Mammalian CPEB3 ribozyme: a 71-nucleotide RNA from Alligator mississippiensis. The mammalian CPEB3 ribozyme is a self cleaving RNA located in the second intron of the CPEB3 gene which belongs to a family of genes regulating messenger RNA polyadenylation. Pairs were carried over by alignment from the consensus structure, which is taken from published work. The source organism's lineage runs through Eukaryota, Deuterostomia, Sauria, Archelosauria and Alligator. Rfam links the family to the GO term RNA nuclease activity.
RNA sequence: CAAGUUUAACAGCAUAGCAAAAGUGCUCAUGGCAUGGCCUGUCAGAUUCCAAAGAAUCUGCAAAUUCUGCU
Numbered sequence: 001c002a003a004g005u006u007u008a009a010c011a012g013c014a015u016a017g018c019a020a021a022a023g024u025g026c027u028c029a030u031g032g033c034a035u036g037g038c039c040u041g042u043c044a045g046a047u048u049c050c051a052a053a054g055a056a057u058c059u060g061c062a063a064a065u066u067c068u069g070c071u
Base pairs, nucleotide, nucleotide: 013036016071017070018069019068021066022065023035024034025033043060044059045058046057047056048055049054